The record is an 85-nucleotide RNA from Pteruthius melanotis, which matches "Small nucleolar RNA snR60/Z15/Z230/Z193/J17" in Rfam.
RNA sequence: AGGCUGCUGUGUGAUGACUGCAUAGUUCAGCAGAUUACCCGUGGUGAUCACAGUUACUGUCUUUCGCUCCUGUCUGAUGCAGCCU
Numbered sequence: 001a002g003g004c005u006g007c008u009g010u011g012u013g014a015u016g017a018c019u020g021c022a023u024a025g026u027u028c029a030g031c032a033g034a035u036u037a038c039c040c041g042u043g044g045u046g047a048u049c050a051c052a053g054u055u056a057c058u059g060u061c062u063u064u065c066g067c068u069c070c071u072g073u074c075u076g077a078u079g080c081a082g083c084c085u
Stems, first nucleotide, its partner, number of pairs: 004082004

The source organism's lineage runs through Eukaryota, Archosauria, Australaves, Sylvioidea and Pteruthius. Pairs were carried over by alignment from the consensus structure. Rfam 15.1 lists 3,592 matches to the family in 1,855 species. The match comes from Rfam's covariance-model search (57 bits). It is annotated as a C/D-box small nucleolar RNA. The literature on the family includes a 2001 paper in Nucleic Acids Res by Qu et al., "Identification of 10 novel snoRNA gene clusters from Arabidopsis thaliana".